Overview:
Shown here is an 84-nucleotide RNA sequence from Blastococcus haudaquaticus, a member of the family "ZMP/ZTP riboswitch aptamer (pfl RNA motif)". NCBI's taxonomy places the organism under Bacteria, Actinomycetes, Geodermatophilales, Geodermatophilaceae, Blastococcus.
[Rfam]
RNA sequence: CCUGCGGGCCGUGACUGGCGCGUCGAGGUGGGCCACCACCGGGGAGCGGCCUGGACCAUCCCGCCGUGCGCCUGGGCACCUUCC
Numbered sequence: 001c002c003u004g005c006g007g008g009c010c011g012u013g014a015c016u017g018g019c020g021c022g023u024c025g026a027g028g029u030g031g032g033c034c035a036c037c038a039c040c041g042g043g044g045a046g047c048g049g050c051c052u053g054g055a056c057c058a059u060c061c062c063g064c065c066g067u068g069c070g071c072c073u074g075g076g077c078a079c080c081u082u083c084c
Base pairs, nucleotide, nucleotide: 003055005053006052007051008050009049010048011047012046015043016042017072018071019070020069021068028039029038030037031036063077064076065075
A search with the family's covariance model found it, with a score of 56 bits.